[Rfam]
RNA sequence: AGCACCUUUAAAUCAGUCCCGUGAGGCUGGCAAGGUAACGUGAACCGAGGUUCAUUAACAGGAGGCAUAGCUCUGUCUGCGGAUAGAUGCUGCUGACUCCACGACAUCUCUAUGAGAUCAACUCCUUGCCCGCAUUGGGCAAGGAGUUUUUUGGU
Numbered sequence: 001a002g003c004a005c006c007u008u009u010a011a012a013u014c015a016g017u018c019c020c021g022u023g024a025g026g027c028u029g030g031c032a033a034g035g036u037a038a039c040g041u042g043a044a045c046c047g048a049g050g051u052u053c054a055u056u057a058a059c060a061g062g063a064g065g066c067a068u069a070g071c072u073c074u075g076u077c078u079g080c081g082g083a084u085a086g087a088u089g090c091u092g093c094u095g096a097c098u099c100c101a102c103g104a105c106a107u108c109u110c111u112a113u114g115a116g117a118u119c120a121a122c123u124c125c126u127u128g129c130c131c132g133c134a135u136u137g138g139g140c141a142a143g144g145a146g147u148u149u150u151u152u153g154g155u
Stems, first nucleotide, its partner, number of pairs: 004036005013030006055086003059082001061080001063078005120148012
A member of the RNA family "PyrR binding site" from Paenibacillus sp. JCM 10914, 155 nucleotides long. The base pairs follow the family's consensus structure, which is taken from published work. Rfam classes the family as a cis-regulatory element. This family represents the PyrR binding site and terminator structure. The match comes from Rfam's covariance-model search (62 bits).